[Rfam]
RNA sequence: AUGAAGUUUGCGGGAGAGACUGUUAUGAUAUUAACAGCGCCGAAGGAGUAAGUAUAUAAUGUUAGCCAUAUUAUAGAUGAUGCUCUCAGGCAAAAGGACCGUAUACUGACA
Numbered sequence: 001a002u003g004a005a006g007u008u009u010g011c012g013g014g015a016g017a018g019a020c021u022g023u024u025a026u027g028a029u030a031u032u033a034a035c036a037g038c039g040c041c042g043a044a045g046g047a048g049u050a051a052g053u054a055u056a057u058a059a060u061g062u063u064a065g066c067c068a069u070a071u072u073a074u075a076g077a078u079g080a081u082g083c084u085c086u087c088a089g090g091c092a093a094a095a096g097g098a099c100c101g102u103a104u105a106c107u108g109a110c111a
Stems, first nucleotide, its partner, number of pairs: 006106002009103005020037004039091003042087002046085003052078002
Shown here is a 111-nucleotide RNA sequence from Sedimentibacter hydroxybenzoicus, a member of the family "Glycine riboswitch aptamer". Pairs were carried over by alignment from the consensus structure. Taxonomically the source falls in Sedimentibacter hydroxybenzoicus (Bacteria, Bacillota, Tissierellia, Sedimentibacter).